[Rfam]
This 545-nucleotide part of an RNA from Plasmodium gonderi belongs to the Rfam family "Eukaryotic large subunit ribosomal RNA". On this family, see Yusupov et al., Science 2001: "Crystal structure of the ribosome at 5.5 A resolution".

RNA sequence: GAAGACCCUGUUGAGCUUUACUCUAGUCUGGCUUUGUGAAACGACUUAAGAGGUGUAGCAUAAGUGGGAGUAGAAACUGAAAUAUGUUUUUACGACAGUGAAAUACCACUACUUUUAAAGUUGUUUUACUUAUCUAUUUAUAGGGAAAUAUACUAUAUAGAUUUAUCUAUAUAUUGAUAUUAAUUGAAUUAAUAAGGUUAUGUAUUUUAUUAUGCAUUCCUUUCCUCCCAGUACUAUGGAGACAUAGCCAGGUGGGGAGUUUGACUGGGGCGGUACAUCUGUUAAACAAUAACGCAGAUGUCCAAAGACAAGCUCAAAGAGAACAGAAAUCUCUUGUAGACUAAAAGGGGAAAAGCUUGUUUGAUUUCUAUUUUCAGAAAAAGUAGAAAACGUGAAAGCGUGGCCUAUCGAUCCUUUAUAUUUGCAAAAUGACGGAAUUUAACUUCCUAUUGUGCAUAUAGAGGUGUCUGAAAAGUUACCACAGGGAUAACUGGCUUGUGGCUGCCAAGCGCUCCUAGCGACGUAGCUUUUUGAUCCUUCGAUGU
Numbered sequence: 001g002a003a004g005a006c007c008c009u010g011u012u013g014a015g016c017u018u019u020a021c022u023c024u025a026g027u028c029u030g031g032c033u034u035u036g037u038g039a040a041a042c043g044a045c046u047u048a049a050g051a052g053g054u055g056u057a058g059c060a061u062a063a064g065u066g067g068g069a070g071u072a073g074a075a076a077c078u079g080a081a082a083u084a085u086g087u088u089u090u091u092a093c094g095a096c097a098g099u100g101a102a103a104u105a106c107c108a109c110u111a112c113u114u115u116u117a118a119a120g121u122u123g124u125u126u127u128a129c130u131u132a133u134c135u136a137u138u139u140a141u142a143g144g145g146a147a148a149u150a151u152a153c154u155a156u157a158u159a160g161a162u163u164u165a166u167c168u169a170u171a172u173a174u175u176g177a178u179a180u181u182a183a184u185u186g187a188a189u190u191a192a193u194a195a196g197g198u199u200a201u202g203u204a205u206u207u208u209a210u211u212a213u214g215c216a217u218u219c220c221u222u223u224c225c226u227c228c229c230a231g232u233a234c235u236a237u238g239g240a241g242a243c244a245u246a247g248c249c250a251g252g253u254g255g256g257g258a259g260u261u262u263g264a265c266u267g268g269g270g271c272g273g274u275a276c277a278u279c280u281g282u283u284a285a286a287c288a289a290u291a292a293c294g295c296a297g298a299u300g301u302c303c304a305a306a307g308a309c310a311a312g313c314u315c316a317a318a319g320a321g322a323a324c325a326g327a328a329a330u331c332u333c334u335u336g337u338a339g340a341c342u343a344a345a346a347g348g349g350g351a352a353a354a355g356c357u358u359g360u361u362u363g364a365u366u367u368c369u370a371u372u373u374u375c376a377g378a379a380a381a382a383g384u385a386g387a388a389a390a391c392g393u394g395a396a397a398g399c400g401u402g403g404c405c406u407a408u409c410g411a412u413c414c415u416u417u418a419u420a421u422u423u424g425c426a427a428a429a430u431g432a433c434g435g436a437a438u439u440u441a442a443c444u445u446c447c448u449a450u451u452g453u454g455c456a457u458a459u460a461g462a463g464g465u466g467u468c469u470g471a472a473a474a475g476u477u478a479c480c481a482c483a484g485g486g487a488u489a490a491c492u493g494g495c496u497u498g499u500g501g502c503u504g505c506c507a508a509g510c511g512c513u514c515c516u517a518g519c520g521a522c523g524u525a526g527c528u529u530u531u532u533g534a535u536c537c538u539u540c541g542a543u544g545u
Stems, first nucleotide, its partner, number of pairs: 007485004012481002014477005020260004027252007036129010046118007063110005070093008133240005143229004151176002154173008194222004263276001264274003277299006302403002308360006314340002317335006341350002365389009391400003414463006423456003494535001496533001498532001500528006509519002